[Rfam]
RNA sequence: UUCUCCGUCUUACCAGGCAGUAUUUGGAGUCUAUUCAACGGGAUCAAACAGUGCCUAAUACUGUCAGGUAAAGAUGUAAAA
Numbered sequence: 001u002u003c004u005c006c007g008u009c010u011u012a013c014c015a016g017g018c019a020g021u022a023u024u025u026g027g028a029g030u031c032u033a034u035u036c037a038a039c040g041g042g043a044u045c046a047a048a049c050a051g052u053g054c055c056u057a058a059u060a061c062u063g064u065c066a067g068g069u070a071a072a073g074a075u076g077u078a079a080a081a
Stems, first nucleotide, its partner, number of pairs: 002080001004078001006076004010071005016065009026055002